[Rfam]
Nucleotides: 077
Stems, first nucleotide, its partner, number of pairs: 002076001004074002008071001011068002016064002019062004024058005030052001
Number, partner (000 for none) and nucleotide at each position: 001000g002076g003000c004074u005073u006000u007000c008071c009000g010000c011068g012067u013000c014000c015000c016064u017063g018000c019062c020061g021060a022059g023000a024058u025057u026056u027055c028054g029000c030052c031000a032000c033000a034000u035000a036000a037000c038000a039000g040000c041000c042000c043000a044000u045000c046000a047000g048000a049000a050000c051000u052030g053000a054028u055027g056026g057025g058024a059022c060021u061020c062019g063017c064016a065000a066000a067012a068011c069000a070000a071008g072000u073005a074004a075000u076002c077000g

Shown here is a 77-nucleotide RNA sequence from Schistosoma mansoni, a member of the family "mir-3492 microRNA precursor family". The organism belongs to Schistosoma, within Eukaryota. Rfam links the family to the GO terms RISC complex and miRNA-mediated post-transcriptional gene silencing.